Rfam assigns this 103-nucleotide RNA from Sphingomonas adhaesiva to the family "Glycine riboswitch aptamer". The organism belongs to Sphingomonas, within Bacteria.

[Rfam]
RNA sequence: UGGGCACGCGCGGGAGAGUGCGACGGGCCUUUCAGGCCGCGGGUCGCCGCCGAAGGAGCAACCACCCCGGAAUCUCUCAGGCACCAUGGACCGCGCGGGCCAU
Numbered sequence: 001u002g003g004g005c006a007c008g009c010g011c012g013g014g015a016g017a018g019u020g021c022g023a024c025g026g027g028c029c030u031u032u033c034a035g036g037c038c039g040c041g042g043g044u045c046g047c048c049g050c051c052g053a054a055g056g057a058g059c060a061a062c063c064a065c066c067c068c069g070g071a072a073u074c075u076c077u078c079a080g081g082c083a084c085c086a087u088g089g090a091c092c093g094c095g096c097g098g099g100c101c102a103u
Stems, first nucleotide, its partner, number of pairs: 007097007020047004049082003052078002056076003062070002
The match comes from Rfam's covariance-model search (61 bits).